[Rfam]
RNA sequence: UUUUUAUUGAUGAUUCUACCUAAGACUCAGGUGGCUUAUGCCUUAAUUAUACCUGCCGAGGAGUAUAAGUAUUCUUACUUAGAAACUUUCUCUAUGUCUUGGUGGACGUAGGGCUUUUUUAUUAUAAUA
Numbered sequence: 001u002u003u004u005u006a007u008u009g010a011u012g013a014u015u016c017u018a019c020c021u022a023a024g025a026c027u028c029a030g031g032u033g034g035c036u037u038a039u040g041c042c043u044u045a046a047u048u049a050u051a052c053c054u055g056c057c058g059a060g061g062a063g064u065a066u067a068a069g070u071a072u073u074c075u076u077a078c079u080u081a082g083a084a085a086c087u088u089u090c091u092c093u094a095u096g097u098c099u100u101g102g103u104g105g106a107c108g109u110a111g112g113g114c115u116u117u118u119u120u121a122u123u124a125u126a127a128u129a
Stems, first nucleotide, its partner, number of pairs: 028055005033042003090113009
Ribosomal protein L10 leader: a 129-nucleotide sequence from Liquorilactobacillus capillatus. Rfam links the family to the GO term regulation of gene expression. Pairs were carried over by alignment from the consensus structure, which was predicted with CMfinder. Rfam's curators write: This family is a putative r-protein leader autoregulatory structure found in B. subtilis and other low-GC Gram-positive bacteria. It is located in the 5' untranslated regions of mRNAs encoding ribosomal proteins L10 and L12 (rplJ-rplL). A Rho-independent transcription terminator structure that is probably involved in regulation is included at the 3' end. It is annotated as a cis-regulatory leader. The organism belongs to Liquorilactobacillus capillatus, within Bacteria.